[Rfam]
RNA sequence: ACAGGCUUGAAGCCAUAGCAGAAGUGCUCAUGGCACUCUCUGUCCGAUUCCAAUGAAUCUGUGAAUUCUGCU
Dot-bracket structure: ........[[.[....((((((((((.......)))].]]...(.(((((....))))).)....)))))))
RNA: Mammalian CPEB3 ribozyme